[Rfam]
RNA sequence: CGAUGACAUUAGGGGAGCCCGUUUGCGGGCUGAGACGACAUGGUCGGACCCUUGAACUUGAUCUGGUUAACACCAGCGGAAGGAAAUGUUCAUGUACUUUC
Numbered sequence: 001c002g003a004u005g006a007c008a009u010u011a012g013g014g015g016a017g018c019c020c021g022u023u024u025g026c027g028g029g030c031u032g033a034g035a036c037g038a039c040a041u042g043g044u045c046g047g048a049c050c051c052u053u054g055a056a057c058u059u060g061a062u063c064u065g066g067u068u069a070a071c072a073c074c075a076g077c078g079g080a081a082g083g084a085a086a087u088g089u090u091c092a093u094g095u096a097c098u099u100u101c
Base pairs, nucleotide, nucleotide: 006089007088008087009086010085011052012051013050014049017030018029019028020027021026037045038044039043057082058081059080063076064075065074066073